[Rfam]
Nucleotides: 138
Stems, first nucleotide, its partner, number of pairs: 003059006014051002016046003022038005070131006093110006
Number, partner (000 for none) and nucleotide at each position: 001000g002000c003059c004058u005057u006056c007055u008054c009000a010000u011000u012000g013000a014051g015050c016046u017045c018044c019000u020000u021000u022038c023037u024036g025035c026034c027000g028000c029000u030000c031000c032000a033000u034026g035025g036024c037023a038022g039000u040000u041000u042000a043000u044018g045017g046016a047000u048000u049000c050015g051014c052000a053000c054008g055007a056006g057005a058004a059003g060000a061000a062000g063000a064000g065000a066000c067000a068000a069000u070131u071130c072129a073128c074127a075126g076000a077000g078000c079000u080000a081000g082000c083000a084000u085000c086000g087000u088000u089000u090000u091000g092000c093110c094109u095108u096107c097106u098105g099000u100000c101000u102000u103000c104000a105098c106097a107096g108095a109094g110093g111000u112000a113000u114000a115000u116000u117000u118000c119000u120000g121000c122000u123000g124000u125000u126075c127074u128073g129072u130071g131070a132000g133000a134000c135000a136000u137000u138000c
Small nucleolar RNA SNORA75: a 138-nucleotide sequence from Rousettus aegyptiacus. On this family, see Bachellerie et al., Biochimie 2002: "The expanding snoRNA world". From the family's description: U23 belongs to the H/ACA class of snoRNAs. snoRNAs bind a number of proteins (including dyskerin, Gar1p and Nop10p in the case of the H/ACA class) to form snoRNP complexes. This class are thought to guide the sites of modification of uridines to pseudouridines by forming direct base pairing interactions with substrate RNAs. Targets include ribosomal and spliceosomal RNAs as well as the Trypanosoma spliced leader RNA (SL RNA) as possibly other, still unknown cellular RNAs. U23 can direct the pseudouridylation of U97 in human 18S rRNA (Bachellerie JP, Ganot, P unpublished data). U23 is encoded within intron 12 of the nucleolin gene in human, mouse, rat chicken, and Xenopus laevis. The source organism's lineage runs through Eukaryota, Chordata, Craniata, Gnathostomata and Rousettus. The match comes from Rfam's covariance-model search (126 bits). By type it is an H/ACA-box small nucleolar RNA.